[Rfam]
RNA: Bacterial RNase P class A
Organism: Gordonia asplenii
RNA sequence: CGAGUCGGCCGGGCGGCCGCGACGAGCGGAACGGCGCAGCGAUGCGUACGCCGAGCGUCGAGGAAAGUCCGGACUCCACAAAGCAGGGUGGUUGUUAACGGCAACCCGGGGUGACCCGCGGGACAGUGCCACAGAAAACAGACCGCCGCGCCCUCGGCGCGGUAAGGGUGAAACGGUGCGGUAAGAGCGCACCAGCGCGGCGGGUGACCGCAGCGGCUCGGUAAACCCCACCCGGAGCAAGGUCGAAGUUCGCACCCGGCGCGCCGGGUGCGGAUGCGCAGGUGUUCGAGGGCUGCUCGCCUGAGCCUGCGGGUGGACCGCUCGAGGUACCCGGUGACGGUGUGCCCAGAUGGAUGGUCGCCCACGGUCUCGCGACCGUGACAUGAUCCGGCUUAUAGGCUGGCUCGUUCG
Numbered sequence: 001c002g003a004g005u006c007g008g009c010c011g012g013g014c015g016g017c018c019g020c021g022a023c024g025a026g027c028g029g030a031a032c033g034g035c036g037c038a039g040c041g042a043u044g045c046g047u048a049c050g051c052c053g054a055g056c057g058u059c060g061a062g063g064a065a066a067g068u069c070c071g072g073a074c075u076c077c078a079c080a081a082a083g084c085a086g087g088g089u090g091g092u093u094g095u096u097a098a099c100g101g102c103a104a105c106c107c108g109g110g111g112u113g114a115c116c117c118g119c120g121g122g123a124c125a126g127u128g129c130c131a132c133a134g135a136a137a138a139c140a141g142a143c144c145g146c147c148g149c150g151c152c153c154u155c156g157g158c159g160c161g162g163u164a165a166g167g168g169u170g171a172a173a174c175g176g177u178g179c180g181g182u183a184a185g186a187g188c189g190c191a192c193c194a195g196c197g198c199g200g201c202g203g204g205u206g207a208c209c210g211c212a213g214c215g216g217c218u219c220g221g222u223a224a225a226c227c228c229c230a231c232c233c234g235g236a237g238c239a240a241g242g243u244c245g246a247a248g249u250u251c252g253c254a255c256c257c258g259g260c261g262c263g264c265c266g267g268g269u270g271c272g273g274a275u276g277c278g279c280a281g282g283u284g285u286u287c288g289a290g291g292g293c294u295g296c297u298c299g300c301c302u303g304a305g306c307c308u309g310c311g312g313g314u315g316g317a318c319c320g321c322u323c324g325a326g327g328u329a330c331c332c333g334g335u336g337a338c339g340g341u342g343u344g345c346c347c348a349g350a351u352g353g354a355u356g357g358u359c360g361c362c363c364a365c366g367g368u369c370u371c372g373c374g375a376c377c378g379u380g381a382c383a384u385g386a387u388c389c390g391g392c393u394u395a396u397a398g399g400c401u402g403g404c405u406c407g408u409u410c411g
Stems, first nucleotide, its partner, number of pairs: 001407010011396001012362007020060005027053002065394003069391005074237004082297003086233005091105005106120001107118004121228002126226002128222003143167002145163008175193006195217001196215003200211004241319004278310006290302004326345001331340003